[Rfam]
RNA sequence: UGGGUCGGCCGGGCGGUCGCGUCGCGCGUGAGCGCGCCGAGGAACGUCCGGGCUCCACAGGGCAGGGCGGUGGGUAACACCCACCCGGAGAAAUCCGCGAGAAAGUGCAACAGAAAGCAGACCGCCGGCCGCAAGGCCGGUAAGGGUGAAACGGUGGUGUAAGAGACCACCAGGGGCCGCGGCGACGCGGCUCGCUGGGUAAACCUCGCCCGGAGCAAGACCAACAGGGGAUGACAAGGCGGCCCGCCGAGUCCCCGGGUAGGUUGCUGGAGCGGCACGGCAACGUGUCGCCGAGAUAGAUGGCCGUCCAGGGGUGGCGACACCCCAGACAGAACCCGGCGUACAGGCCGGCCCAUUCG
Numbered sequence: 001u002g003g004g005u006c007g008g009c010c011g012g013g014c015g016g017u018c019g020c021g022u023c024g025c026g027c028g029u030g031a032g033c034g035c036g037c038c039g040a041g042g043a044a045c046g047u048c049c050g051g052g053c054u055c056c057a058c059a060g061g062g063c064a065g066g067g068c069g070g071u072g073g074g075u076a077a078c079a080c081c082c083a084c085c086c087g088g089a090g091a092a093a094u095c096c097g098c099g100a101g102a103a104a105g106u107g108c109a110a111c112a113g114a115a116a117g118c119a120g121a122c123c124g125c126c127g128g129c130c131g132c133a134a135g136g137c138c139g140g141u142a143a144g145g146g147u148g149a150a151a152c153g154g155u156g157g158u159g160u161a162a163g164a165g166a167c168c169a170c171c172a173g174g175g176g177c178c179g180c181g182g183c184g185a186c187g188c189g190g191c192u193c194g195c196u197g198g199g200u201a202a203a204c205c206u207c208g209c210c211c212g213g214a215g216c217a218a219g220a221c222c223a224a225c226a227g228g229g230g231a232u233g234a235c236a237a238g239g240c241g242g243c244c245c246g247c248c249g250a251g252u253c254c255c256c257g258g259g260u261a262g263g264u265u266g267c268u269g270g271a272g273c274g275g276c277a278c279g280g281c282a283a284c285g286u287g288u289c290g291c292c293g294a295g296a297u298a299g300a301u302g303g304c305c306g307u308c309c310a311g312g313g314g315u316g317g318c319g320a321c322a323c324c325c326c327a328g329a330c331a332g333a334a335c336c337c338g339g340c341g342u343a344c345a346g347g348c349c350g351g352c353c354c355a356u357u358c359g
Base pairs, nucleotide, nucleotide: 001355002354003353004352005351006350007349008348009347010346011344012308013307014306015305016304017303018302020039021038023036024035025034026033027032044342045341046340048339049338050337051336052335053215054214055213056212060245061244062243063242065211066210067209068208069207070084071083072082073081074080085099086097087096088095089094100206101205105204106203107200108199122145123144124141125140126139127138128137129136130135153171154170155169156168157167158166173195174193175192176191177190178189179188180187181186219265220264221263222262227256228255229254230253231252232251238248239247240246272291273290274289275288276287277286278285279284
The record is a 359-nucleotide RNA from Microbacterium faecale, which matches "Bacterial RNase P class A" in Rfam. The source organism's lineage runs through Bacteria, Actinomycetes, Micrococcales, Microbacteriaceae and Microbacterium. The literature on the family includes a 1998 paper in Annu Rev Biochem by Frank and Pace, "Ribonuclease P: unity and diversity in a tRNA processing ribozyme".